[Rfam]
RNA sequence: UGGACUCCUGCUUCAACAGUGCUUGAAUGGAACCU
Numbered sequence: 001u002g003g004a005c006u007c008c009u010g011c012u013u014c015a016a017c018a019g020u021g022c023u024u025g026a027a028u029g030g031a032a033c034c035u
Base pairs, nucleotide, nucleotide: 002034003033006031007030008029010028012027013026014025015024016023017021